[Rfam]
Nucleotides: 131
Base pairs, nucleotide, nucleotide: 001057002056003055004054005053012047013046014045015044016042017041018040020038021037067124068123069122070121071120072119080111081110082109083108084107085106086105087104092102093101094100
Number, partner (000 for none) and nucleotide at each position: 001057g002056c003055a004054c005053u006000a007000c008000a009000g010000c011000a012047a013046a014045c015044c016042a017041u018040u019000u020038c021037c022000u023000g024000c025000u026000c027000u028000g029000u030000c031000a032000c033000a034000g035000c036000u037021g038020g039000a040018a041017g042016u043000g044015g045014g046013u047012u048000a049000a050000a051000a052000c053005g054004g055003u056002g057001c058000a059000a060000u061000a062000a063000u064000a065000a066000c067124u068123c069122a070121u071120a072119g073000u074000g075000u076000a077000u078000c079000c080111a081110g082109a083108c084107g085106g086105g087104u088000a089000u090000c091000c092102u093101c094100a095000u096000c097000u098000g099000u100094u101093g102092g103000a104087a105086c106085c107084u108083g109082u110081c111080u112000c113000u114000a115000c116000a117000a118000a119072c120071u121070a122069u123068g124067a125000u126000a127000c128000a129000u130000u131000a